[Rfam]
RNA sequence: GUGCCCUUUUUAAGGUUGACUGAGUGCCUUAAGAGGCUAACACAGAAGGGUACAUGAAGCAAGUCUCCAUAAGACCCAGAGAAGAGGUGGCAAAACUCCUCUCUGGAUCCUGUCUGGAGUCACAGCU
Numbered sequence: 001g002u003g004c005c006c007u008u009u010u011u012a013a014g015g016u017u018g019a020c021u022g023a024g025u026g027c028c029u030u031a032a033g034a035g036g037c038u039a040a041c042a043c044a045g046a047a048g049g050g051u052a053c054a055u056g057a058a059g060c061a062a063g064u065c066u067c068c069a070u071a072a073g074a075c076c077c078a079g080a081g082a083a084g085a086g087g088u089g090g091c092a093a094a095a096c097u098c099c100u101c102u103c104u105g106g107a108u109c110c111u112g113u114c115u116g117g118a119g120u121c122a123c124a125g126c127u
Base pairs, nucleotide, nucleotide: 002052003051004050005049006048007047008046009045010044015041016040017039018038020036063121065119066118067117068116069115076106077105078104079103080102081101082100084098085097086096088095
This 127-nucleotide sequence from Pipistrellus kuhlii belongs to the Rfam family "Small nucleolar RNA SNORA26". The snoRNA HBI-6 belong to the H/ACA family of snoRNAs, guiding the pseudouridylation of position U4522 if the 28S rRNA. HBI-6 is the human orthologue of mouse MBI-6 snoRNA. The family is grouped with related families in Rfam's "SNORA27 clan". It is annotated as an H/ACA-box small nucleolar RNA. The family's consensus secondary structure was predicted with RNAalifold. For this family Rfam cites "RNomics: an experimental approach that identifies 201 candidates for novel, small, non-messenger RNAs in mouse" (Huttenhofer et al., EMBO J, 2001). The source organism's lineage runs through Eukaryota, Gnathostomata, Sarcopterygii, Eutheria and Pipistrellus.